[Rfam]
This 122-nucleotide RNA from Cohaesibacter sp. ES.047 belongs to the Rfam family "SAM-I/IV (S-adenosyl methionine) riboswitch aptamer". NCBI's taxonomy places the organism under Bacteria, Pseudomonadati, Pseudomonadota, Alphaproteobacteria, Cohaesibacter.

RNA sequence: CGGCAUCAUCUAGAGAAGGGCUGGCGCCCUCGCCAACCUGCCGACCGCGGCAAGGUGGCACCUACACGGGAUGUGGCGGCAUCUUUGCAAACCGCGAAGAUGGCGCAAACUAGCGGAAUGAU
Numbered sequence: 001c002g003g004c005a006u007c008a009u010c011u012a013g014a015g016a017a018g019g020g021c022u023g024g025c026g027c028c029c030u031c032g033c034c035a036a037c038c039u040g041c042c043g044a045c046c047g048c049g050g051c052a053a054g055g056u057g058g059c060a061c062c063u064a065c066a067c068g069g070g071a072u073g074u075g076g077c078g079g080c081a082u083c084u085u086u087g088c089a090a091a092c093c094g095c096g097a098a099g100a101u102g103g104c105g106c107a108a109a110c111u112a113g114c115g116g117a118a119u120g121a122u
Stems, first nucleotide, its partner, number of pairs: 007073004015031001017030005032059003037055003040051003046116001076106003

A search with the family's covariance model found it, with a score of 55 bits.